[Rfam]
RNA sequence: CAGAAUCAACCCCCACAACGGAUCGUUCGGCACGUUCCUGCCGAUGGAGGAGUGCAUC
Numbered sequence: 001c002a003g004a005a006u007c008a009a010c011c012c013c014c015a016c017a018a019c020g021g022a023u024c025g026u027u028c029g030g031c032a033c034g035u036u037c038c039u040g041c042c043g044a045u046g047g048a049g050g051a052g053u054g055c056a057u058c
Stems, first nucleotide, its partner, number of pairs: 010050002013047003027044006
The family of this 58-nucleotide RNA sequence from Corynebacterium glaucum is "msiK RNA". Rfam classes the family as a cis-regulatory element. A search with the family's covariance model found it, with a score of 53 bits.